[Rfam]
RNA sequence: CAUCAGAGAAGGAUAAGAAUAAGACCUGAAUUCUCAAUG
Numbered sequence: 001c002a003u004c005a006g007a008g009a010a011g012g013a014u015a016a017g018a019a020u021a022a023g024a025c026c027u028g029a030a031u032u033c034u035c036a037a038u039g
Stems, first nucleotide, its partner, number of pairs: 001039003006034001008033001010027003
S4-Flavobacteria ribosomal protein leader: a 39-nucleotide sequence.
Clan: Ribosomal Protein S4 Leader clan.
Rfam's curators put it in the seed alignment.
Rfam classes the family as a cis-regulatory leader.